Rfam assigns this 67-nucleotide sequence from Dinoroseobacter shibae to the family "terC RNA". Rfam's curators put it in the seed alignment.
[Rfam]
RNA sequence: UGUGCGAGCCGGGCCCCUCUGACGGAUGAUGUAUCAGAUACAUCUGCCGUGAUGUCGGAUCGCUCCC
Numbered sequence: 001u002g003u004g005c006g007a008g009c010c011g012g013g014c015c016c017c018u019c020u021g022a023c024g025g026a027u028g029a030u031g032u033a034u035c036a037g038a039u040a041c042a043u044c045u046g047c048c049g050u051g052a053u054g055u056c057g058g059a060u061c062g063c064u065c066c067c
Base pairs, nucleotide, nucleotide: 006061007060009058010057011056012055022050023049024048025047028044029043030042031041032040033039